[Rfam]
RNA sequence: UUGUCCCUGUGUUACCCUAUUUAAAGUCCUCAUUUAAAUUUGGGUGUCAAAAGGGACAUACAAUAAAUUCCUUUAUUCCACAAGCAUUUGUGACUUUAAUCAUAAUAUGCUUACUAAAUAUUGGAUACAUAU
Numbered sequence: 001u002u003g004u005c006c007c008u009g010u011g012u013u014a015c016c017c018u019a020u021u022u023a024a025a026g027u028c029c030u031c032a033u034u035u036a037a038a039u040u041u042g043g044g045u046g047u048c049a050a051a052a053g054g055g056a057c058a059u060a061c062a063a064u065a066a067a068u069u070c071c072u073u074u075a076u077u078c079c080a081c082a083a084g085c086a087u088u089u090g091u092g093a094c095u096u097u098a099a100u101c102a103u104a105a106u107a108u109g110c111u112u113a114c115u116a117a118a119u120a121u122u123g124g125a126u127a128c129a130u131a132u
Stems, first nucleotide, its partner, number of pairs: 002058006010049002016043002019040001021038002082112005089104004